[Rfam]
RNA sequence: GCGGAGGGCCGGAUGGCCGCGGGGCCUUCGGGCCGCGAGGAAAGUCCGGACUCCACAAGGCAACGGUGCCGGGUAACGCCCGGCGGGGGAAACCCCAGGGAAAGCGCCACAGAGAAUAAUCUGCUCCGGCUUGCCGGAGUGAGGGUGAAACGGUGGGGUAAGAGCCCACCGCGGGACUGGCAACAGGACCGGCAAGGCAAGCCCCACCGGGAGCAAUGCCGAAUAGGGAUCGCGCGCGGGGACCGGUCCGGGAGGGAACUCCGGGAUACCGCCUGCAGGGCCGCCUUGGCCUGGCGAUCCGGGUUGGCAGCUAGACGCGUGUCGGUAACGGUACGCCUAGAGGAAUGGUCAUCCAGCCCCGCAAGGGGUGGACAGAAUCCGGCUUACAGGCCCUCCGCGCAU
Number, nucleotide and partner (000 for none) at each position: 001g398002c397003g396004g395005a394006g393007g392008g391009c390010c389011g387012g353013a352014u351015g350016g349017c348018c347019g000020c037021g036022g000023g034024g033025c032026c031027u000028u000029c000030g000031g026032g025033c024034c023035g000036c021037g020038a000039g000040g000041a000042a385043a384044g383045u000046c382047c381048g380049g379050a378051c213052u212053c211054c210055a000056c000057a000058a000059g287060g286061c000062a000063a000064c209065g208066g207067u206068g205069c083070c082071g081072g080073g079074u000075a000076a000077c000078g000079c073080c072081c071082g070083g069084c098085g096086g095087g094088g093089g000090a000091a000092a000093c088094c087095c086096c085097a000098g084099g204100g203101a000102a000103a000104g202105c201106g198107c197108c196109a000110c000111a000112g000113a000114g000115a000116a000117u000118a000119a000120u000121c144122u143123g140124c139125u138126c137127c136128g135129g134130c000131u000132u000133g000134c129135c128136g127137g126138a125139g124140u123141g000142a000143g122144g121145g000146u000147g000148a000149a000150a000151c000152g170153g169154u168155g167156g166157g165158g000159u000160a000161a000162g000163a000164g000165c157166c156167c155168a154169c153170c152171g193172c191173g190174g189175g000176a000177c186178u185179g184180g000181c000182a000183a000184c179185a178186g177187g000188a000189c174190c173191g172192g000193c171194a000195a000196g108197g107198c106199a000200a000201g105202c104203c100204c099205c068206a067207c066208c065209g064210g054211g053212a052213g051214c000215a000216a000217u309218g308219c307220c306221g000222a000223a000224u000225a000226g000227g300228g299229a298230u297231c296232g295233c000234g000235c000236g000237c000238g000239g000240g000241g000242a000243c000244c000245g000246g000247u000248c000249c000250g000251g000252g000253a000254g000255g000256g000257a000258a000259c000260u000261c000262c000263g000264g000265g000266a000267u000268a000269c000270c000271g000272c000273c000274u000275g000276c000277a000278g292279g291280g290281c289282c288283g000284c000285c000286u060287u059288g282289g281290c280291c279292u278293g000294g000295c232296g231297a230298u229299c228300c227301g000302g000303g000304u000305u000306g220307g219308c218309a217310g000311c000312u000313a000314g000315a000316c000317g336318c335319g334320u333321g332322u331323c330324g329325g000326u000327a000328a000329c324330g323331g322332u321333a320334c319335g318336c317337c000338u000339a000340g000341a000342g000343g000344a000345a000346u000347g018348g017349u016350c015351a014352u013353c012354c000355a000356g000357c000358c000359c000360c000361g000362c000363a000364a000365g000366g000367g000368g000369u000370g000371g000372a000373c000374a000375g000376a000377a000378u050379c049380c048381g047382g046383c044384u043385u042386a000387c011388a000389g010390g009391c008392c007393c006394u005395c004396c003397g002398c001399g000400c000401a000402u000